[Rfam]
RNA sequence: UUGUGUCAGGCCAUGGAAACAUGCCACCCAAAGCUUGUAGAGGGUGCAGCCUGCGCCAAGCCCCAGGAGGACUGGGU
Dot-bracket structure: ....(((((((((((....))))...(((............)))....))))).)).....(((((.....))))).
General Flavivirus exoribonuclease-resistant RNA element: a 77-nucleotide RNA sequence from Orthoflavivirus ilheusense. The literature on the family includes a 2018 paper in Proc Natl Acad Sci U S A by Steckelberg et al., "A folded viral noncoding RNA blocks host cell exoribonucleases through a conformationally dynamic RNA structure". The family's consensus secondary structure was predicted with LocARNA. Rfam describes the family as follows. The exoribonuclease-resistant RNA elements (xrRNA) are described throughout all groups of flaviviruses. Usually, each virus harbors two xrRNAs, xrRNA1 and xrRNA2, in the beginning of the 3' UTR. The formation of these stem-loops, especially xrRNA1, is vital to ensure resistance against XRN1 activity. The Y-shaped stem-loop is also termed SL II and SL IV, respectively.